A member of the RNA family "Plastid-clpP 5UTR RNA" from Ricinus communis, 74 nucleotides long. For this family Rfam cites "Retrograde signaling in plants: A critical review focusing on the GUN pathway and beyond" (Richter et al., Plant Commun, 2023). Taxonomically the source falls in Ricinus (Eukaryota, Viridiplantae, Embryophyta, Euphorbiaceae). The family's consensus secondary structure was predicted with LocARNA. About the family: Plastid clpP is a non-coding RNA (ncRNA) recognised in plastids. It was found in the prime untranslated region (5UTR) of a protease complex subunit (clpP) in plastids, suggesting a posible cis-regulatory function. Rfam 15.1 lists 2,105 matches to the family in 526 species.
RNA sequence: AAUUCCGUUUGUAGGAACAAAGAAAAGAGAACCCGAUCUAUUCUAUACCCAAUAAGUACCAAUACGCAAUAGGG
Numbered sequence: 001a002a003u004u005c006c007g008u009u010u011g012u013a014g015g016a017a018c019a020a021a022g023a024a025a026a027g028a029g030a031a032c033c034c035g036a037u038c039u040a041u042u043c044u045a046u047a048c049c050c051a052a053u054a055a056g057u058a059c060c061a062a063u064a065c066g067c068a069a070u071a072g073g074g
Stems, first nucleotide, its partner, number of pairs: 003022002007018004048073002056065003